[Rfam]
RNA sequence: AACUCUCCGUAUUCACUGUAUGCCUUGAUGUGGUUUUUUCCGAUCAUAAGGCACGCGGUGAAUGCCAAGAGGA
Numbered sequence: 001a002a003c004u005c006u007c008c009g010u011a012u013u014c015a016c017u018g019u020a021u022g023c024c025u026u027g028a029u030g031u032g033g034u035u036u037u038u039u040c041c042g043a044u045c046a047u048a049a050g051g052c053a054c055g056c057g058g059u060g061a062a063u064g065c066c067a068a069g070a071g072g073a
Stems, first nucleotide, its partner, number of pairs: 003071004009065008018056002023051005030044001
The record is a 73-nucleotide RNA from Stegodyphus mimosarum, which matches "mir-124 microRNA precursor family" in Rfam. Rfam links the family to the GO terms miRNA-mediated post-transcriptional gene silencing and RISC complex. Lineage of the source: Eukaryota > Chelicerata > Araneomorphae > Eresoidea > Stegodyphus. Rfam 15.1 lists 2,215 matches to the family in 905 species. Pairs were carried over by alignment from the consensus structure, which was predicted with PFOLD.